[Rfam]
About this RNA:
Histone 3' UTR stem-loop: a 45-nucleotide sequence from Triplophysa tibetana.
RNA sequence: CCAAAGGCUCUUUUAAGAGCCACCCACAAUAUCACUGAGAGAGCG
Number, nucleotide and partner (000 for none) at each position: 001c000002c000003a000004a000005a000006g021007g020008c019009u018010c017011u016012u000013u000014u000015a000016a011017g010018a009019g008020c007021c006022a000023c000024c000025c000026a000027c000028a000029a000030u000031a000032u000033c000034a000035c000036u000037g000038a000039g000040a000041g000042a000043g000044c000045g000

About the family: The mRNAs of metazoan histone genes lack a poly-A tail. 3' end processing occurs at a site between a highly conserved stem-loop (modelled by this family) and a purine rich region around 20 nts downstream (the histone downstream element, or HDE). The stem-loop is bound by a 31 kDa stem-loop binding protein (SLBP - also termed the histone hairpin binding protein, or HBP). Together with U7 snRNA binding of the HDE, SLBP binding nucleate s the formation of the processing complex. On this family, see Williams and Marzluff, Nucleic Acids Res 1995: "The sequence of the stem and flanking sequences at the 3' end of histone mRNA are critical determinants for the binding of the stem-loop binding protein". The family's consensus secondary structure is taken from published work. NCBI's taxonomy places the organism under Eukaryota, Metazoa, Gnathostomata, Otophysi, Triplophysa.